[Rfam]
Shown here is a 149-nucleotide RNA sequence from Paracidovorax valerianellae, a member of the family "radC RNA". The match comes from Rfam's covariance-model search (100 bits). Lineage of the source: Bacteria > Pseudomonadati > Burkholderiales > Comamonadaceae > Paracidovorax. The base pairs follow the family's consensus structure, which is taken from published work.
RNA sequence: AUUCGCACAUAGGCAGCCGGUGGCUCUCCAUCGGCUUCCCAGGCAGCCCCGAUCUUGAAGGCUGCGGCAUGGCCCGUCCAUGCUGAUCGCUCCAGUUCGCAUCGCAUCCACCCACCGCGAACGGCCGGCACAACCGUGCCGGCGGAUGC
Numbered sequence: 001a002u003u004c005g006c007a008c009a010u011a012g013g014c015a016g017c018c019g020g021u022g023g024c025u026c027u028c029c030a031u032c033g034g035c036u037u038c039c040c041a042g043g044c045a046g047c048c049c050c051g052a053u054c055u056u057g058a059a060g061g062c063u064g065c066g067g068c069a070u071g072g073c074c075c076g077u078c079c080a081u082g083c084u085g086a087u088c089g090c091u092c093c094a095g096u097u098c099g100c101a102u103c104g105c106a107u108c109c110a111c112c113c114a115c116c117g118c119g120a121a122c123g124g125c126c127g128g129c130a131c132a133a134c135c136g137u138g139c140c141g142g143c144g145g146a147u148g149c
Stems, first nucleotide, its partner, number of pairs: 011037001013036001019032005043065006051088004066084007117149003124143008